[Rfam]
Nucleotides: 136
Base pairs, nucleotide, nucleotide: 012121013120014119015118016117019055020054021053022052023051024050025049026048027047028046029045033042034041035040057074058073059072060071061070077102078101079100080099081098082097083096085094086093087092103113104112
Number, partner (000 for none) and nucleotide at each position: 001000c002000a003000a004000a005000a006000a007000c008000a009000u010000g011000u012121u013120c014119u015118c016117c017000g018000a019055g020054c021053c022052u023051a024050u025049u026048u027047g028046c029045c030000u031000a032000a033042g034041g035040c036000u037000c038000a039000g040035g041034c042033u043000a044000u045029g046028g047027c048026a049025a050024a051023u052022g053021g054020g055019c056000c057074g058073u059072g060071c061070u062000g063000c064000u065000c066000c067000g068000g069000c070061a071060g072059c073058a074057c075000c076000a077102g078101g079100g080099u081098a082097u083096g084000g085094c086093g087092g088000g089000a090000a091000a092087c093086c094085g095000g096083c097082a098081u099080g100079c101078c102077c103113c104112c105000c106000g107000c108000a109000u110000u111000u112104g113103g114000a115000a116000a117016g118015g119014a120013g121012a122000c123000c124000c125000g126000a127000c128000g129000a130000g131000a132000u133000u134000u135000g136000a

This 136-nucleotide RNA from Calderihabitans maritimus belongs to the Rfam family "Molybdenum/Tungsten riboswitch aptamer (Moco RNA motif)". The family's consensus secondary structure is taken from published work. A search with the family's covariance model found it, with a score of 92 bits.